[Rfam]
RNA sequence: CUCAUGGAGAGUUCGAUCCUGGCUCAGGAUGAACGCUGGCGGCAUGCUUCACACAUGCAAGUCGGACGGGAAGUGGUGUUUCCAGUGGCGGACGGGUGAGUAACGCGUAAGAACCUGCCCUUGGGAGGGGAACAACAGCUGGAAACGGCUGCUAAUACCCCGUAGGCUGAGGAGCAAAAGGAGGAAUCCGCCCGAGGAGGGGCUCGCGUCUGAUUAGCUAGUUGGUGAGGCAAUAGCUUACCAAGGCGAUGAUCAGUAGCUGGUCCGAGAGGAUGAUCAGCCACACUGGGACUGAGACACGGCCCAGACUCCUACGGGAGGCAGCAGUGGGGAAUUUUCCGCAAUGGGCGAAAGCCUGACGGAGCAAUGCCGCGUGGAGGUAGAAGGCCCACGGGUCGUGAACUUCUUUUCCCGGAGAAGAAGCAAUGACGGUAUCUGGGGAAUAAGCAUCGGCUAACUCUGUGCCAGCAGCCGCGGUAAUACAGAGGAUGCAAGCGUUAUCCGGAAUGAUUG
Numbered sequence: 001c002u003c004a005u006g007g008a009g010a011g012u013u014c015g016a017u018c019c020u021g022g023c024u025c026a027g028g029a030u031g032a033a034c035g036c037u038g039g040c041g042g043c044a045u046g047c048u049u050c051a052c053a054c055a056u057g058c059a060a061g062u063c064g065g066a067c068g069g070g071a072a073g074u075g076g077u078g079u080u081u082c083c084a085g086u087g088g089c090g091g092a093c094g095g096g097u098g099a100g101u102a103a104c105g106c107g108u109a110a111g112a113a114c115c116u117g118c119c120c121u122u123g124g125g126a127g128g129g130g131a132a133c134a135a136c137a138g139c140u141g142g143a144a145a146c147g148g149c150u151g152c153u154a155a156u157a158c159c160c161c162g163u164a165g166g167c168u169g170a171g172g173a174g175c176a177a178a179a180g181g182a183g184g185a186a187u188c189c190g191c192c193c194g195a196g197g198a199g200g201g202g203c204u205c206g207c208g209u210c211u212g213a214u215u216a217g218c219u220a221g222u223u224g225g226u227g228a229g230g231c232a233a234u235a236g237c238u239u240a241c242c243a244a245g246g247c248g249a250u251g252a253u254c255a256g257u258a259g260c261u262g263g264u265c266c267g268a269g270a271g272g273a274u275g276a277u278c279a280g281c282c283a284c285a286c287u288g289g290g291a292c293u294g295a296g297a298c299a300c301g302g303c304c305c306a307g308a309c310u311c312c313u314a315c316g317g318g319a320g321g322c323a324g325c326a327g328u329g330g331g332g333a334a335u336u337u338u339c340c341g342c343a344a345u346g347g348g349c350g351a352a353a354g355c356c357u358g359a360c361g362g363a364g365c366a367a368u369g370c371c372g373c374g375u376g377g378a379g380g381u382a383g384a385a386g387g388c389c390c391a392c393g394g395g396u397c398g399u400g401a402a403c404u405u406c407u408u409u410u411c412c413c414g415g416a417g418a419a420g421a422a423g424c425a426a427u428g429a430c431g432g433u434a435u436c437u438g439g440g441g442a443a444u445a446a447g448c449a450u451c452g453g454c455u456a457a458c459u460c461u462g463u464g465c466c467a468g469c470a471g472c473c474g475c476g477g478u479a480a481u482a483c484a485g486a487g488g489a490u491g492c493a494a495g496c497g498u499u500a501u502c503c504g505g506a507a508u509g510a511u512u513g
Base pairs, nucleotide, nucleotide: 009025010024011023012022013021027503028502029501030500032499033498034497035496036495037494039373040372041371042370043369044368045366046365047331052329053328054327056326057325058324061089062088063087066086067085069083072080073079074078096284097283098282105209106208107207108206110204111203114201115200119197120196121195122194123193124192125191127161128160129159130158136151137150138149139148140147141146166175167174168173180189181188182187210256211255212254217247218246219245222244223243224242225241226240227239228238229237259281260280261279262278263274264273265272266271286307287306288305289304290303309320310319311318312317337363339362340361341360345358346357347356348355349354376406377405378404379403386397387396388395389394411440412439413438414437415436416435420430447492448491449490450489451488458487459486460485461484462483468475469474
RNA: Bacterial small subunit ribosomal RNA, nucleotides 1 to 513